[Rfam]
RNA sequence: AGGGUGUGCUCAGAGCAGGUGACCUGAAGAACAGUUCCUCAGUUUACAGCACACCCAACAGGAAUCCAGGGUCCACGUGACAAGGAACACUAAACCUGUGACUUCCCUUCAAGUGAAUGUCCUGCAUGU
Number, nucleotide and partner (000 for none) at each position: 001a000002g056003g055004g054005u053006g052007u051008g050009c000010u000011c000012a000013g045014a044015g043016c042017a000018g040019g039020u000021g037022a035023c034024c000025u000026g000027a000028a000029g000030a000031a000032c000033a000034g023035u022036u000037c021038c000039u019040c018041a000042g016043u015044u014045u013046a000047c000048a000049g000050c008051a007052c006053a005054c004055c003056c002057a000058a000059c000060a000061g000062g000063a000064a000065u000066c000067c000068a000069g122070g121071g120072u119073c000074c000075a000076c115077g114078u113079g000080a000081c000082a000083a000084g104085g103086a000087a000088c100089a099090c098091u000092a000093a000094a000095c000096c000097u000098g090099u089100g088101a000102c000103u085104u084105c000106c000107c000108u000109u000110c000111a000112a000113g078114u077115g076116a000117a000118u000119g072120u071121c070122c069123u000124g000125c000126a000127u000128g000129u000

Small nucleolar RNA SNORA11: a 129-nucleotide sequence from Octodon degus. The family's RNA type in Rfam is H/ACA-box small nucleolar RNA. Rfam's curators write: U107 (SNORA11) is a member of the H/ACA class of snoRNAs that guide the sites of modification of uridines to pseudouridines. This snoRNA was identified by RT-PCR from blood cells and its expression confirmed by Northern blot analysis. NCBI's taxonomy places the organism under Eukaryota, Metazoa, Dipnotetrapodomorpha, Octodontidae, Octodon. Its family is annotated with RNA processing and nucleolus in the Gene Ontology.